[Rfam]
RNA sequence: UGCCCCAACUCUGGAGAGCGGUAGCGGCAGAUACGUUUAUUGUUAUAAAUAUUCGCCGGACUACCCACCGAAGGUGCGCGCGGGCAGCAAACAUACAUGGCUCCCGUAAUCUCUCAGGUACCAGGACAGAGGGGUAUGC
Numbered sequence: 001u002g003c004c005c006c007a008a009c010u011c012u013g014g015a016g017a018g019c020g021g022u023a024g025c026g027g028c029a030g031a032u033a034c035g036u037u038u039a040u041u042g043u044u045a046u047a048a049a050u051a052u053u054c055g056c057c058g059g060a061c062u063a064c065c066c067a068c069c070g071a072a073g074g075u076g077c078g079c080g081c082g083g084g085c086a087g088c089a090a091a092c093a094u095a096c097a098u099g100g101c102u103c104c105c106g107u108a109a110u111c112u113c114u115c116a117g118g119u120a121c122c123a124g125g126a127c128a129g130a131g132g133g134g135u136a137u138g139c
Base pairs, nucleotide, nucleotide: 006134009131010130011129012128013127020065021064022063023062067119068118069117070115071114074113076111
The record is a 139-nucleotide RNA from Undibacterium sp. KW1, which matches "Glycine riboswitch aptamer" in Rfam. Taxonomically the source falls in Undibacterium (Bacteria, Pseudomonadota, Betaproteobacteria, Oxalobacteraceae). It scores 45 bits against the family's covariance model. Pairs were carried over by alignment from the consensus structure.